[Rfam]
RNA: Small nucleolar RNA U3
Organism: Bucorvus abyssinicus
RNA sequence: AGGACUAUACUUUCAGGGGUCAUUUCUGUAGUUGGUCACUAGAGGAGAGUGAUCGCAAAUGGCCGGCGUCACAAGCCACGAGGAGGAGCUGGGUGUUCUCUCCUGAGCGCGAAGCUGGCGGGCGGCGCUGCAUGUGUAGUUGCCGCUCGCCAUUGAUGACCGUUCCCUGCCGGCGUUAUUUGCGGGCAUGGGAGGGAGAGAGCACGGGCUGAGUGGU
Numbered sequence: 001a002g003g004a005c006u007a008u009a010c011u012u013u014c015a016g017g018g019g020u021c022a023u024u025u026c027u028g029u030a031g032u033u034g035g036u037c038a039c040u041a042g043a044g045g046a047g048a049g050u051g052a053u054c055g056c057a058a059a060u061g062g063c064c065g066g067c068g069u070c071a072c073a074a075g076c077c078a079c080g081a082g083g084a085g086g087a088g089c090u091g092g093g094u095g096u097u098c099u100c101u102c103c104u105g106a107g108c109g110c111g112a113a114g115c116u117g118g119c120g121g122g123c124g125g126c127g128c129u130g131c132a133u134g135u136g137u138a139g140u141u142g143c144c145g146c147u148c149g150c151c152a153u154u155g156a157u158g159a160c161c162g163u164u165c166c167c168u169g170c171c172g173g174c175g176u177u178a179u180u181u182g183c184g185g186g187c188a189u190g191g192g193a194g195g196g197a198g199a200g201a202g203c204a205c206g207g208g209c210u211g212a213g214u215g216g217u
Stems, first nucleotide, its partner, number of pairs: 002040002006035001009032003014028005051063001053062002075217005093205012107163003117151004123145004127140005166191002168188004173183002